[Rfam]
RNA sequence: CCCUGUUCUCAGGGCGGGGCGAAACUCCCCACCGGCGGUAUGCGGGCUUGGUCCCGCGAGCCCGCGAGCGCCUUCCAACCGGAAGGGUCAGCAGACCAGGUGCGAUGCCUGGGCCGACGGUUACAGUCCGGAUGAAAGAGGACAUGC
Numbered sequence: 001c002c003c004u005g006u007u008c009u010c011a012g013g014g015c016g017g018g019g020c021g022a023a024a025c026u027c028c029c030c031a032c033c034g035g036c037g038g039u040a041u042g043c044g045g046g047c048u049u050g051g052u053c054c055c056g057c058g059a060g061c062c063c064g065c066g067a068g069c070g071c072c073u074u075c076c077a078a079c080c081g082g083a084a085g086g087g088u089c090a091g092c093a094g095a096c097c098a099g100g101u102g103c104g105a106u107g108c109c110u111g112g113g114c115c116g117a118c119g120g121u122u123a124c125a126g127u128c129c130g131g132a133u134g135a136a137a138g139a140g141g142a143c144a145u146g147c
Stems, first nucleotide, its partner, number of pairs: 004144007017029003031127002033116002035065004060114002068092002096112005118130003
The record is a 147-nucleotide RNA from Mesorhizobium sp. Root157, which matches "FMN riboswitch aptamer (RFN element)" in Rfam. The match comes from Rfam's covariance-model search (107 bits). Its family is annotated with FMN binding in the Gene Ontology. Pairs were carried over by alignment from the consensus structure, which is taken from published work. Taxonomically the source falls in Mesorhizobium (Bacteria, Alphaproteobacteria, Hyphomicrobiales, Phyllobacteriaceae).